The record is a 143-nucleotide sequence from Mesorhabditis spiculigera, which matches "Nematode snoRNA ceN88" in Rfam. A reference for the family is Jia et al. (2007), "Systematic identification of non-coding RNA 2,2,7-trimethylguanosine cap structures in Caenorhabditis elegans", BMC Mol Biol. NCBI's taxonomy places the organism under Eukaryota, Opisthokonta, Protostomia, Rhabditina, Mesorhabditis. By type it is an H/ACA-box small nucleolar RNA. Its family is annotated with nucleolus and RNA processing in the Gene Ontology. Pairs were carried over by alignment from the consensus structure, which was predicted with RNAalifold.
[Rfam]
RNA sequence: CGGCUCCUGUCUUGGCGCCUCGGUCCCAACAACUGGCCGUGGUGUAUGUUACGGGAAGCAAUAGCAUGCCCUUCGGGGAGAUCAGGCUACUUCGGUAUUGGGUGCAGCAUUGUCCAAUAUUAUCCUCUGGGUCUGAAAUAUUU
Numbered sequence: 001c002g003g004c005u006c007c008u009g010u011c012u013u014g015g016c017g018c019c020u021c022g023g024u025c026c027c028a029a030c031a032a033c034u035g036g037c038c039g040u041g042g043u044g045u046a047u048g049u050u051a052c053g054g055g056a057a058g059c060a061a062u063a064g065c066a067u068g069c070c071c072u073u074c075g076g077g078g079a080g081a082u083c084a085g086g087c088u089a090c091u092u093c094g095g096u097a098u099u100g101g102g103u104g105c106a107g108c109a110u111u112g113u114c115c116a117a118u119a120u121u122a123u124c125c126u127c128u129g130g131g132u133c134u135g136a137a138a139u140a141u142u143u
Stems, first nucleotide, its partner, number of pairs: 003059003006055005015045004021039004069078003082136005087130002094121002098117006